This 72-nucleotide RNA from Setaria italica belongs to the Rfam family "Small nucleolar RNA R160". snoR160 is a C/D box small nucleolar RNA, which acts as a methylation guide for 25S ribosomal RNA in plants. snoR160 has been alternatively named snoZ270 in rice. Lineage of the source: Eukaryota > Spermatophyta > Liliopsida > Petrosaviidae > Setaria. Rfam classes the family as a C/D-box small nucleolar RNA. Rfam 15.1 lists 799 matches to the family in 221 species. Its family is annotated with RNA processing and nucleolus in the Gene Ontology. Pairs were carried over by alignment from the consensus structure. On this family, see Chen et al., Nucleic Acids Res 2003: "The high diversity of snoRNAs in plants: identification and comparative study of 120 snoRNA genes from Oryza sativa".
[Rfam]
RNA sequence: AGCAAAAUGAGGUUUUAUGACCUGAAGUAUCUGAUGUUGAUACAUACAUGGUCUUCAAAGUUCUCUGAUGCU
Numbered sequence: 001a002g003c004a005a006a007a008u009g010a011g012g013u014u015u016u017a018u019g020a021c022c023u024g025a026a027g028u029a030u031c032u033g034a035u036g037u038u039g040a041u042a043c044a045u046a047c048a049u050g051g052u053c054u055u056c057a058a059a060g061u062u063c064u065c066u067g068a069u070g071c072u
Stems, first nucleotide, its partner, number of pairs: 001072004